The family of this 135-nucleotide sequence from Cervus elaphus is "Small nucleolar RNA SNORA43".
It scores 85 bits against the family's covariance model.
Its family is annotated with RNA processing and nucleolus in the Gene Ontology.
It is annotated as an H/ACA-box small nucleolar RNA.
From the family's description: ACA43 is a member of the H/ACA class of snoRNA that guide the sites of modification of uridines to pseudouridines.

[Rfam]
RNA sequence: GCGGCUCCCAGCCUUGCUGGCACUGUGGCCGCGGCUGCCCUGCUGCACCUGAGACACUGGGGCAGGGAGGAAGUGGCCAUUUCUGUGCUCAGUGCUCAGAACUGAGCGCUGAGAGUGAACUGCAGCCGGACUUCA
Numbered sequence: 001g002c003g004g005c006u007c008c009c010a011g012c013c014u015u016g017c018u019g020g021c022a023c024u025g026u027g028g029c030c031g032c033g034g035c036u037g038c039c040c041u042g043c044u045g046c047a048c049c050u051g052a053g054a055c056a057c058u059g060g061g062g063c064a065g066g067g068a069g070g071a072a073g074u075g076g077c078c079a080u081u082u083c084u085g086u087g088c089u090c091a092g093u094g095c096u097c098a099g100a101a102c103u104g105a106g107c108g109c110u111g112a113g114a115g116u117g118a119a120c121u122g123c124a125g126c127c128g129g130a131c132u133u134c135a
Stems, first nucleotide, its partner, number of pairs: 004063002007061005026051003075127003084117002088113002093108006

Source information:
Rfam 15.1 lists 492 matches to the family in 142 species.